gyrA RNA: an 87-nucleotide RNA sequence from Pseudomonas sp. v388. Rfam classes the family as a cis-regulatory element. The family's consensus secondary structure is taken from published work. Taxonomically the source falls in Pseudomonas (Bacteria, Gammaproteobacteria, Pseudomonadales, Pseudomonadaceae).
RNA sequence: ACGUGAGUUGGGUCCGGGCCUGUAUGGGGCUCAACGAGUUCGGCAAGGCACAGGAGCGUUUUGCCGGAGAUCCUCAAGAGUGCGGAA
Numbered sequence: 001a002c003g004u005g006a007g008u009u010g011g012g013u014c015c016g017g018g019c020c021u022g023u024a025u026g027g028g029g030c031u032c033a034a035c036g037a038g039u040u041c042g043g044c045a046a047g048g049c050a051c052a053g054g055a056g057c058g059u060u061u062u063g064c065c066g067g068a069g070a071u072c073c074u075c076a077a078g079a080g081u082g083c084g085g086a087a
Stems, first nucleotide, its partner, number of pairs: 007035009036072002039068011051056001